small nucleolar RNA snoR137: a 143-nucleotide RNA from Oryza rufipogon. The family's consensus secondary structure was predicted with RNAalifold. Lineage of the source: Eukaryota > Magnoliopsida > commelinids > Poales > Oryza. By type it is an H/ACA-box small nucleolar RNA. A search with the family's covariance model found it, with a score of 55 bits.

[Rfam]
Nucleotides: 143
Stems, first nucleotide, its partner, number of pairs: 003065006017054003021050001022048005079137005085131001092123003096118005
Number, partner (000 for none) and nucleotide at each position: 001000g002000u003065u004064g005063c006062u007061u008060c009000a010000c011000g012000a013000c014000u015000g016000g017054a018053u019052g020000a021050a022048u023047g024046g025045c026044c027000u028000g029000a030000u031000g032000a033000u034000a035000u036000a037000a038000u039000u040000g041000u042000u043000u044026g045025g046024u047023c048022a049000u050021u051000c052019u053018g054017u055000a056000g057000a058000g059000a060008g061007a062006a063005g064004c065003a066000u067000a068000g069000a070000u071000u072000g073000a074000u075000u076000u077000c078000g079137g080136c081135c082134a083133g084000a085131a086000u087000u088000a089000a090000a091000c092123a093122g094121c095000a096118u097117g098116g099115c100114g101000c102000c103000u104000u105000g106000u107000u108000a109000c110000a111000c112000c113000g114100c115099g116098u117097c118096a119000g120000u121094g122093u123092u124000a125000c126000c127000u128000g129000c130000c131085u132000c133083c134082u135081g136080g137079c138000a139000c140000a141000u142000c143000c